[Rfam]
A member of the RNA family "Small nucleolar RNA U2-19" from Rostratula benghalensis, 84 nucleotides long. The organism belongs to Rostratula, within Eukaryota. By type it is a C/D-box small nucleolar RNA. Gene Ontology terms of the family: nucleolus and RNA processing.
RNA sequence: GGUCUGUGAUGAGAAAUAGCCAAAUCUGACCACCAGAAGACAAUAUUGUCUUCCAGGUGUUGUGAUUUGUAUGCAGUUCUGAGA
Number, nucleotide and partner (000 for none) at each position: 001g000002g000003u000004c000005u000006g000007u000008g000009a000010u000011g000012a000013g000014a000015a000016a000017u000018a000019g000020c000021c000022a000023a000024a000025u000026c000027u000028g000029a000030c000031c059032a058033c057034c056035a000036g000037a000038a051039g050040a049041c048042a000043a000044u000045a000046u000047u000048g041049u040050c039051u038052u000053c000054c000055a000056g034057g033058u032059g031060u000061u000062g000063u000064g000065a000066u000067u000068u000069g000070u000071a000072u000073g000074c000075a000076g000077u000078u000079c000080u000081g000082a000083g000084a000